[Rfam]
Rfam assigns this 65-nucleotide RNA from Ornithorhynchus anatinus to the family "Selenocysteine insertion sequence 1". The source organism's lineage runs through Eukaryota, Deuterostomia, Gnathostomata, Sarcopterygii and Ornithorhynchus.
RNA sequence: UGCGCAUUAAUGACGACUACACAGAAAACCUAUCAUGGAUUUGUGUAUAUCUGAUGUUUCGUGUA
Numbered sequence: 001u002g003c004g005c006a007u008u009a010a011u012g013a014c015g016a017c018u019a020c021a022c023a024g025a026a027a028a029c030c031u032a033u034c035a036u037g038g039a040u041u042u043g044u045g046u047a048u049a050u051c052u053g054a055u056g057u058u059u060c061g062u063g064u065a
Stems, first nucleotide, its partner, number of pairs: 001065005015051002018047007030038003

The incorporation of selenocysteine into a protein sequence is directed by an in-frame UGA codon (usually a stop codon) within the coding region of the mRNA. Selenoprotein mRNAs contain a conserved secondary structure in the 3' UTR that is required for the distinction of UGA stop from UGA selenocysteine. The selenocysteine insertion sequence (SECIS) is around 60 nt in length and adopts a hairpin structure which is sufficiently well-defined and conserved to act as a computational screen for selenoprotein genes.